[Rfam]
RNA: ffh sRNA
Organism: Rubellimicrobium sp. CFH 75288
RNA sequence: GUGCCGGGGGAUCGCCGUCCGCCAGCGCGAUGCGCCCGCGGGCGCGAUCGGC
Numbered sequence: 001g002u003g004c005c006g007g008g009g010g011a012u013c014g015c016c017g018u019c020c021g022c023c024a025g026c027g028c029g030a031u032g033c034g035c036c037c038g039c040g041g042g043c044g045c046g047a048u049c050g051g052c
Stems, first nucleotide, its partner, number of pairs: 016044007025035004